RNA sequence: AUCGUUCAUUUCUAUUUUUUAACUAUCUAACUCAAGAUAGAUGUUUUAUAGAGACGGAAGUAAGGAGUAAUCCUGAAGGAACGCGCC
Numbered sequence: 001a002u003c004g005u006u007c008a009u010u011u012c013u014a015u016u017u018u019u020u021a022a023c024u025a026u027c028u029a030a031c032u033c034a035a036g037a038u039a040g041a042u043g044u045u046u047u048a049u050a051g052a053g054a055c056g057g058a059a060g061u062a063a064g065g066a067g068u069a070a071u072c073c074u075g076a077a078g079g080a081a082c083g084c085g086c087c
Stems, first nucleotide, its partner, number of pairs: 003083005009054007057084001063074003